The record is a 205-nucleotide sequence from Acutalibacter sp. 1XD8-33, which matches "Group II catalytic intron D1-D4-5" in Rfam. Group II introns are found in rRNA, tRNA and mRNA of organelles in fungi, plants and protists, and also in mRNA in bacteria. The family has 139 seed sequences and 720 matches in Rfam 15.1. A search with the family's covariance model found it, with a score of 151 bits.
RNA sequence: UAGAACUGAUAUCCCGAUAGGUGGAAUGAAGGGGUAACGCCCCCAAACGCCUACCUUGAAACUGCGACAGGCGGGGAAUUGUGCAGUAAAUUUCCUGUCUGAGAGCUUGCAAAGUCGGCAGAAGUAUGUCCAAACAGGGCUGUCAGCCGCUGUGGAACCCGGCCUGGAGGCAGGCUGUGCAGAUGAUAUGCCGGAGGUCUAUAAG
Numbered sequence: 001u002a003g004a005a006c007u008g009a010u011a012u013c014c015c016g017a018u019a020g021g022u023g024g025a026a027u028g029a030a031g032g033g034g035u036a037a038c039g040c041c042c043c044c045a046a047a048c049g050c051c052u053a054c055c056u057u058g059a060a061a062c063u064g065c066g067a068c069a070g071g072c073g074g075g076g077a078a079u080u081g082u083g084c085a086g087u088a089a090a091u092u093u094c095c096u097g098u099c100u101g102a103g104a105g106c107u108u109g110c111a112a113a114g115u116c117g118g119c120a121g122a123a124g125u126a127u128g129u130c131c132a133a134a135c136a137g138g139g140c141u142g143u144c145a146g147c148c149g150c151u152g153u154g155g156a157a158c159c160c161g162g163c164c165u166g167g168a169g170g171c172a173g174g175c176u177g178u179g180c181a182g183a184u185g186a187u188a189u190g191c192c193g194g195a196g197g198u199c200u201a202u203a204a205g
Stems, first nucleotide, its partner, number of pairs: 018053006031043004054197004064110004068101013116193005124184002127181003130155003137151002160177007